[Rfam]
RNA sequence: CUGAGGUCUUGGCUUUGAGAACUGAAUUCCGAAGGUGUUUCCUCUAUAACUGACCCUCGGCCUUCAGUUCUUAAGCUUGGAUGCUCUCU
Numbered sequence: 001c002u003g004a005g006g007u008c009u010u011g012g013c014u015u016u017g018a019g020a021a022c023u024g025a026a027u028u029c030c031g032a033a034g035g036u037g038u039u040u041c042c043u044c045u046a047u048a049a050c051u052g053a054c055c056c057u058c059g060g061c062c063u064u065c066a067g068u069u070c071u072u073a074a075g076c077u078u079g080g081a082u083g084c085u086c087u088c089u
Stems, first nucleotide, its partner, number of pairs: 008080002011077003018071008034055003
Shown here is an 89-nucleotide RNA from Denticeps clupeoides, a member of the family "mir-146 microRNA precursor family". A reference for the family is Lagos-Quintana et al. (2002), "Identification of tissue-specific microRNAs from mouse", Curr Biol. Rfam 15.1 lists 1,617 matches to the family in 642 species. Gene Ontology terms of the family: RISC complex and miRNA-mediated post-transcriptional gene silencing.